MIR390 microRNA precursor family: a 130-nucleotide RNA from Daucus carota.
RNA sequence: GUGAAGAAUCUGUGAAGCUCAGGAGGGAUAGCGCCAACAAAAUAACAUAUGCAUGGUGAUCUCUAUUCCUGAAUGUGUGUAUUUGUUCAAACUGUCGCGCUAUCCAUCCUGAGUUUCAUAGCUUUUUCAU
Number, nucleotide and partner (000 for none) at each position: 001g000002u000003g000004a000005a000006g000007a000008a000009u000010c121011u000012g000013u000014g000015a000016a115017g114018c113019u112020c111021a110022g109023g108024a107025g000026g105027g104028a103029u102030a101031g100032c099033g098034c097035c000036a000037a000038c000039a000040a000041a000042a000043u000044a000045a000046c000047a000048u000049a000050u000051g000052c000053a000054u000055g000056g000057u000058g000059a000060u000061c000062u000063c000064u000065a000066u000067u000068c000069c000070u000071g000072a000073a000074u000075g000076u000077g000078u000079g000080u000081a000082u000083u000084u000085g000086u000087u000088c000089a000090a000091a000092c000093u000094g000095u000096c000097g034098c033099g032100c031101u030102a029103u028104c027105c026106a000107u024108c023109c022110u021111g020112a019113g018114u017115u016116u000117c000118a000119u000120a000121g010122c000123u000124u000125u000126u000127u000128c000129a000130u000

Notes:
The match comes from Rfam's covariance-model search (91 bits). The literature on the family includes a 2005 paper in Plant Physiol by Xie et al., "Expression of Arabidopsis MIRNA genes".